RNA sequence: GAGAGGUUCAUGCCCUCAGCCGUUCAGCUAUUUAAACGUCAUCCCAUCAGUUAAAUUAUUCUGAAUAUUCUGGUGCUAAACGGAAUGAGGGUAGUCAUCCCUCUCAU
Numbered sequence: 001g002a003g004a005g006g007u008u009c010a011u012g013c014c015c016u017c018a019g020c021c022g023u024u025c026a027g028c029u030a031u032u033u034a035a036a037c038g039u040c041a042u043c044c045c046a047u048c049a050g051u052u053a054a055a056u057u058a059u060u061c062u063g064a065a066u067a068u069u070c071u072g073g074u075g076c077u078a079a080a081c082g083g084a085a086u087g088a089g090g091g092u093a094g095u096c097a098u099c100c101c102u103c104u105c106a107u
Base pairs, nucleotide, nucleotide: 001105002104003103004102005101006100011093012092013091014090015089016088017087018086020083021082022081023080024079026077027076028075044073045072046071047064048063049062050061
Shown here is a 107-nucleotide RNA from Medicago truncatula, a member of the family "MIR5294 microRNA precursor family". The base pairs follow the family's consensus structure, which was predicted with RNAalifold. Rfam's curators put it in the seed alignment.